[Rfam]
RNA sequence: CACCGCACUCCUUCACCCCGGAUCGUCGGGCACGUACCUGCCCGUGAAAGGAACCCCAC
Numbered sequence: 001c002a003c004c005g006c007a008c009u010c011c012u013u014c015a016c017c018c019c020g021g022a023u024c025g026u027c028g029g030g031c032a033c034g035u036a037c038c039u040g041c042c043c044g045u046g047a048a049a050g051g052a053a054c055c056c057c058a059c
Stems, first nucleotide, its partner, number of pairs: 009051002012048004027044006